[Rfam]
RNA sequence: CUGGUGCUGUGAUUGUAAAGAACAUUCCUCGUACUGAAUGCUGUGGAAAAUGGCAUGAUAGACUCUUUCUACACCCAUAGAAUAUGAGCACC
Numbered sequence: 001c002u003g004g005u006g007c008u009g010u011g012a013u014u015g016u017a018a019a020g021a022a023c024a025u026u027c028c029u030c031g032u033a034c035u036g037a038a039u040g041c042u043g044u045g046g047a048a049a050a051u052g053g054c055a056u057g058a059u060a061g062a063c064u065c066u067u068u069c070u071a072c073a074c075c076c077a078u079a080g081a082a083u084a085u086g087a088g089c090a091c092c
Stems, first nucleotide, its partner, number of pairs: 003092004
The family of this 92-nucleotide RNA sequence from Ananas comosus is "Small nucleolar RNA snoR8a". It is annotated as a C/D-box small nucleolar RNA. The literature on the family includes a 2001 paper in RNA by Brown et al., "Multiple snoRNA gene clusters from Arabidopsis". Gene Ontology terms of the family: nucleolus and RNA processing. Taxonomically the source falls in Ananas (Eukaryota, Viridiplantae, Embryophyta, commelinids).